A member of the RNA family "Alphacoronavirus 3'UTR" from Alphacoronavirus amsterdamense, 299 nucleotides long.
The sequence is in the family's curated seed alignment.
Rfam's curators write: The 3' UTR of alphacoronaviruses consists of two small hairpins (PK-SL2) which can form an alternate conformation (PK-SL1) where the loop region of the second hairpin interacts with the stem of the first hairpin. PK-SL2 has been confirmed in HCoV-229E and HCoV-NL63 by in vitro structure probing experiments. Downstream of this pseudoknot lies the hypervariable region (HVR), which is supported by many covarying basepairs in alphacoronaviruses. Further, a conserved octanucleotide sequence is present in the HVR.
Its Rfam clan is "Coronavirus 3' UTR".
NCBI's taxonomy places the organism under Viruses, Pisoniviricetes, Cornidovirineae, Setracovirus, Alphacoronavirus amsterdamense.
It is annotated as a cis-regulatory element.
Rfam links the family to the GO term viral RNA genome replication.

RNA sequence: AGGUUUUGCAUUAAAUUGUUUUGUAAUUCCAGUUGAAUGUUUAUUAUUAUUAGUUGCAACCCCAUGCGUUUAGCGCAUGAUAAGGGUUUAGUCUUACACACAAUGGUAGGCCAGUGAUAGUAAAGUGUAAGUAAUUUGCUAUCAUAUUAACAUGUCUAGAGGAAAGUCAGAACUUUUUCUGUUUGUGUUGUUGGAGUACUUAAAGAUCGCAUAGGCGCGCCAACAAUGGAAGAGCCAACAACAUAUCUAAAAAUGUUUUGUCUGGUACUUGUUAAUGAUAUUGUUUUUGAUAUGGAUAC
Numbered sequence: 001a002g003g004u005u006u007u008g009c010a011u012u013a014a015a016u017u018g019u020u021u022u023g024u025a026a027u028u029c030c031a032g033u034u035g036a037a038u039g040u041u042u043a044u045u046a047u048u049a050u051u052a053g054u055u056g057c058a059a060c061c062c063c064a065u066g067c068g069u070u071u072a073g074c075g076c077a078u079g080a081u082a083a084g085g086g087u088u089u090a091g092u093c094u095u096a097c098a099c100a101c102a103a104u105g106g107u108a109g110g111c112c113a114g115u116g117a118u119a120g121u122a123a124a125g126u127g128u129a130a131g132u133a134a135u136u137u138g139c140u141a142u143c144a145u146a147u148u149a150a151c152a153u154g155u156c157u158a159g160a161g162g163a164a165a166g167u168c169a170g171a172a173c174u175u176u177u178u179c180u181g182u183u184u185g186u187g188u189u190g191u192u193g194g195a196g197u198a199c200u201u202a203a204a205g206a207u208c209g210c211a212u213a214g215g216c217g218c219g220c221c222a223a224c225a226a227u228g229g230a231a232g233a234g235c236c237a238a239c240a241a242c243a244u245a246u247c248u249a250a251a252a253a254u255g256u257u258u259u260g261u262c263u264g265g266u267a268c269u270u271g272u273u274a275a276u277g278a279u280a281u282u283g284u285u286u287u288u289g290a291u292a293u294g295g296a297u298a299c
Base pairs, nucleotide, nucleotide: 093110094109095108096107097106114145115144116143117142118141119140120139121138122137123136124135149285150284151283152282154281159270160269161268166262168260169259170258176251177250178249184245185244186243187242188241190239191238192237193236194235210219220229221228